RNA sequence: GACCAUGCUUCCAUGGGACCUGCCAGUGUGGUAGUUUCCCUUCCUAGUCAUGGUAGAGAAACCUUCAACCUUGCUUUUUGGCAUAGCUCCCAUCCAUUCAAUUGGGGCGAGACUCUGACUUGGGCAAGGCACAA
Number, nucleotide and partner (000 for none) at each position: 001g000002a054003c053004c052005a051006u050007g049008c000009u000010u000011c000012c000013a000014u000015g040016g039017g038018a037019c000020c034021u033022g032023c031024c030025a000026g000027u000028g000029u000030g024031g023032u022033a021034g020035u000036u000037u018038c017039c016040c015041u000042u000043c000044c000045u000046a000047g000048u000049c007050a006051u005052g004053g003054u002055a000056g000057a000058g000059a000060a000061a000062c000063c000064u000065u000066c000067a000068a000069c000070c000071u000072u133073g132074c000075u000076u000077u000078u127079u126080g125081g000082c122083a121084u000085a000086g000087c111088u110089c109090c000091c000092a000093u106094c105095c104096a103097u000098u000099c000100a000101a000102u000103u096104g095105g094106g093107g000108c000109g089110a088111g087112a000113c000114u000115c000116u000117g000118a000119c000120u000121u083122g082123g000124g000125c080126a079127a078128g000129g000130c000131a000132c073133a072134a000
The record is a 134-nucleotide RNA from Anolis carolinensis, which matches "Small nucleolar RNA SNORA24" in Rfam. Gene Ontology terms of the family: nucleolus and RNA processing. From the family's description: ACA24 is a member of the H/ACA class of snoRNA that guide the sites of modification of uridines to pseudouridines.